[Rfam]
RNA: mir-1302 microRNA precursor family
Organism: Erinaceus europaeus
RNA sequence: UUUUUAGUAUAAGUAUGUCUCAUGUAGUAUUUGAGAUAUACUUGCACUAAAA
Numbered sequence: 001u002u003u004u005u006a007g008u009a010u011a012a013g014u015a016u017g018u019c020u021c022a023u024g025u026a027g028u029a030u031u032u033g034a035g036a037u038a039u040a041c042u043u044g045c046a047c048u049a050a051a052a
Base pairs, nucleotide, nucleotide: 006048007047008046010044011043012042014040015039016038018036019035020034021033022031